[Rfam]
RNA sequence: AGGAAUUUAAUAUUUCCGCUGUAGAAAGCAGGAGCCGUAAGGCUUAAUAGCCUGCCGAGGUUGGAAGAUUACGCCGAAAGAUAUUUAUUUGGCAUUCUUAACCUCUGCAAAUGCGGAGGUUUUUUGCUGAGUUU
Dot-bracket structure: ...........................(((((.(((....))).......)))))..............................................(((((((....)))))))...............

This 134-nucleotide sequence from Desulfosporosinus orientis belongs to the Rfam family "Ribosomal protein L10 leader".
The literature on the family includes a 1994 paper in Prog Nucleic Acid Res Mol Biol by Zengel and Lindahl, "Diverse mechanisms for regulating ribosomal protein synthesis in Escherichia coli".
This family is a putative r-protein leader autoregulatory structure found in B. subtilis and other low-GC Gram-positive bacteria. It is located in the 5' untranslated regions of mRNAs encoding ribosomal proteins L10 and L12 (rplJ-rplL).
By type it is a cis-regulatory leader.
Pairs were carried over by alignment from the consensus structure, which was predicted with CMfinder.